[Rfam]
RNA sequence: AAAUUUAUGGGCGAUGGAGUUCGCCAUUAAACGCGUAAAGCUAAUGACUCCUACAAGAUG
Numbered sequence: 001a002a003a004u005u006u007a008u009g010g011g012c013g014a015u016g017g018a019g020u021u022c023g024c025c026a027u028u029a030a031a032c033g034c035g036u037a038a039a040g041c042u043a044a045u046g047a048c049u050c051c052u053a054c055a056a057g058a059u060g
Stems, first nucleotide, its partner, number of pairs: 010025004016051006033041002
RNA: Fluoride riboswitch aptamer (crcB RNA motif)